[Rfam]
RNA sequence: AAGAAAUAGGAGCUCCCUUCAGUCCAAAACAAAGAGGAGGAUUUUUCUUUAGUAGCCAUGUUUUGGGCUGCAAGGAACCCCCAUUUCUG
Dot-bracket structure: ......(.((.(.(((.(..((.(((((.................................))))).))..).))).).)).)......
Numbered sequence: 001a002a003g004a005a006a007u008a009g010g011a012g013c014u015c016c017c018u019u020c021a022g023u024c025c026a027a028a029a030c031a032a033a034g035a036g037g038a039g040g041a042u043u044u045u046u047c048u049u050u051a052g053u054a055g056c057c058a059u060g061u062u063u064u065g066g067g068c069u070g071c072a073a074g075g076a077a078c079c080c081c082c083a084u085u086u087c088u089g
Stems, first nucleotide, its partner, number of pairs: 007083001009081002012078001014076003018072001021069002024066005
The family of this 89-nucleotide RNA from Rhamnella rubrinervis is "MIR319 microRNA precursor family". Gene Ontology terms of the family: RISC complex and miRNA-mediated post-transcriptional gene silencing. NCBI's taxonomy places the organism under Eukaryota, Streptophytina, Spermatophyta, Rosales, Rhamnella. Rfam 15.1 lists 168 matches to the family in 79 species.